[Rfam]
RNA sequence: CGGAUGGGGAAAGCGAUCUCCCCACGAGGCUCCGGCUGAAGUAUCGCGUCCUUUUCAUCCAUUCUCAUGGACGGACGCGGCAUG
Numbered sequence: 001c002g003g004a005u006g007g008g009g010a011a012a013g014c015g016a017u018c019u020c021c022c023c024a025c026g027a028g029g030c031u032c033c034g035g036c037u038g039a040a041g042u043a044u045c046g047c048g049u050c051c052u053u054u055u056c057a058u059c060c061a062u063u064c065u066c067a068u069g070g071a072c073g074g075a076c077g078c079g080g081c082a083u084g
Stems, first nucleotide, its partner, number of pairs: 005024006046078006

The record is an 84-nucleotide RNA sequence from Fulvimarina pelagi, which matches "chrB-a RNA" in Rfam. Taxonomically the source falls in Fulvimarina pelagi (Bacteria, Pseudomonadota, Aurantimonadaceae, Fulvimarina).